[Rfam]
Shown here is an 83-nucleotide sequence from a Syntrophomonadaceae bacterium, a member of the family "NiCo (Nickel/Cobalt) riboswitch aptamer". The match comes from Rfam's covariance-model search (43 bits). A reference for the family is Furukawa et al. (2015), "Bacterial riboswitches cooperatively bind Ni(2+) or Co(2+) ions and control expression of heavy metal transporters", Mol Cell.

RNA sequence: AAUGUAUUUGAGGAACAGGCAAUUGACUGAAGUACAGUCGAUGGAGCCGGGCUGAUGCAGCAGGGAAAACCUGUGGGACCUGA
Number, nucleotide and partner (000 for none) at each position: 001a000002a000003u000004g000005u000006a000007u000008u000009u000010g000011a081012g080013g079014a000015a000016c077017a000018g048019g047020c046021a000022a042023u041024u040025g039026a038027c037028u000029g000030a000031a000032g000033u000034a000035c000036a000037g027038u026039c025040g024041a023042u022043g000044g000045a000046g020047c019048c018049g000050g000051g058052c057053u000054g000055a000056u000057g052058c051059a000060g074061c073062a072063g071064g070065g000066a000067a000068a000069a000070c064071c063072u062073g061074u060075g000076g000077g016078a000079c013080c012081u011082g000083a000